[Rfam]
The record is a 182-nucleotide RNA sequence from Tistrella mobilis, which matches "FMN riboswitch aptamer (RFN element)" in Rfam.
Rfam links the family to the GO term FMN binding.
The base pairs follow the family's consensus structure, which is taken from published work.
RNA sequence: AUACGUUCUCGGGGCGGGGUGGAAGUCCCCACCGGCGGUAUGCAAGCGGGCCCAGGCCCGGUUGCGAGCCCGCGAGCGCCCGCCAGAGGUUCAAGGCCGGUCGGCCGGAACCGAUGGCGGGGUCAGCAGAUCCGGUGCGAUGCCGGAGCCGACGGUUACAGUCCGGAUGGAAGAGAACGGAG
Numbered sequence: 001a002u003a004c005g006u007u008c009u010c011g012g013g014g015c016g017g018g019g020u021g022g023a024a025g026u027c028c029c030c031a032c033c034g035g036c037g038g039u040a041u042g043c044a045a046g047c048g049g050g051c052c053c054a055g056g057c058c059c060g061g062u063u064g065c066g067a068g069c070c071c072g073c074g075a076g077c078g079c080c081c082g083c084c085a086g087a088g089g090u091u092c093a094a095g096g097c098c099g100g101u102c103g104g105c106c107g108g109a110a111c112c113g114a115u116g117g118c119g120g121g122g123u124c125a126g127c128a129g130a131u132c133c134g135g136u137g138c139g140a141u142g143c144c145g146g147a148g149c150c151g152a153c154g155g156u157u158a159c160a161g162u163c164c165g166g167a168u169g170g171a172a173g174a175g176a177a178c179g180g181a182g
Base pairs, nucleotide, nucleotide: 004179005178006177007176008175009174010173017029018028019027031162032161033151034150035073036072037071038070068149069148076127077126131147132146133145134144135143153165154164155163